[Rfam]
RNA: Small nucleolar RNA snoR100
RNA sequence: UUAUGAUAGAAGCAUGGUACUGUGCACGGAGAUUGAGCAACUUUUAGGUCGUCAUGUCUGCUCCCACUGAUUUUUUCUGAUUUGGGGGCCUGGAUUAGACCUACAUUU
Numbered sequence: 001u002u003a004u005g006a007u008a009g010a011a012g013c014a015u016g017g018u019a020c021u022g023u024g025c026a027c028g029g030a031g032a033u034u035g036a037g038c039a040a041c042u043u044u045u046a047g048g049u050c051g052u053c054a055u056g057u058c059u060g061c062u063c064c065c066a067c068u069g070a071u072u073u074u075u076u077c078u079g080a081u082u083u084g085g086g087g088g089c090c091u092g093g094a095u096u097a098g099a100c101c102u103a104c105a106u107u108u
Stems, first nucleotide, its partner, number of pairs: 012025004046091005056081003060075001